[Rfam]
RNA: MIR1435 microRNA precursor family
Organism: Oryza meyeriana
RNA sequence: AGCUUUUGUCUUAAGUCAAACUUCUCUAAUAUUAACCGAGAUUACAGAAAAAUGCAGUAACAUCUACCAUAACAAAUAAAUACACUAUCAAGAUAUAUUUCGCGGUGGAUUUUAAUGAAACUAAUUUGAUGUUGUAGAUGUUGAUGCAAUUUUCUAUAUACUCGGUCAAAGUUAGAGAAGUUUGACUUAGCACAAAAGCUA
Dot-bracket structure: ....(((((.((((((((((((((((.....((.(..........((((((...((..(((((((((.....(((((..............................................))))).....)))))))))..))...))))))..........).)).....)))))))))))))))).))))).....